The family of this 96-nucleotide sequence from Propithecus coquereli is "Y RNA". It scores 61 bits against the family's covariance model.
Nucleotides: 096
Stems, first nucleotide, its partner, number of pairs: 001092008010084002015079001016075006033061002037057002
Number, partner (000 for none) and nucleotide at each position: 001092g002091g003090c004089u005088g006087g007086u008085c009000u010084g011083a012000u013000g014000a015079u016075a017074g018073u019072g020071g021070g022000u023000u024000a025000u026000c027000a028000g029000a030000u031000c032000u033061u034060a035000c036000u037057a038056a039000u040000a041000u042000u043000a044000g045000u046000g047000u048000u049000a050000c051000u052000a053000a054000a055000g056038u057037u058000g059000u060034u061033a062000u063000a064000c065000a066000a067000c068000u069000u070021c071020c072019c073018a074017c075016u076000g077000c078000u079015a080000a081000a082000u083011u084010u085008g086007a087006c088005u089004g090003g091002c092001u093000u094000a095000a096000a